[Rfam]
Nucleotides: 070
Base pairs, nucleotide, nucleotide: 002022003021004020005019006018007017008016009015026041027040028039029038030037
Number, partner (000 for none) and nucleotide at each position: 001000a002022c003021a004020g005019c006018c007017a008016c009015g010000c011000c012000g013000u014000u015009u016008g017007u018006g019005g020004c021003u022002g023000a024000c025000a026041g027040c028039u029038c030037a031000c032000a033000g034000u035000u036000g037030u038029g039028a040027g041026u042000g043000c044000a045000a046000u047000a048000a049000c050000a051000u052000g053000a054000a055000a056000a057000a058000a059000g060000g061000a062000a063000a064000u065000g066000c067000c068000a069000u070000g
Background: A member of the RNA family "osmY RNA" from Erwinia mallotivora, 70 nucleotides long. It scores 54 bits against the family's covariance model. The family's consensus secondary structure is taken from published work.